[Rfam]
RNA: Small nucleolar RNA SNORD19
Organism: Ornithorhynchus anatinus
RNA sequence: AAGAGAUGAUGAUGAUACACAUAGUCUUAUUGUGACGGUGAAGACAUCAGAUCCAACUCUGAUUUUGCCCCAGUA
Numbered sequence: 001a002a003g004a005g006a007u008g009a010u011g012a013u014g015a016u017a018c019a020c021a022u023a024g025u026c027u028u029a030u031u032g033u034g035a036c037g038g039u040g041a042a043g044a045c046a047u048c049a050g051a052u053c054c055a056a057c058u059c060u061g062a063u064u065u066u067g068c069c070c071c072a073g074u075a
Base pairs, nucleotide, nucleotide: 001066002065003064004063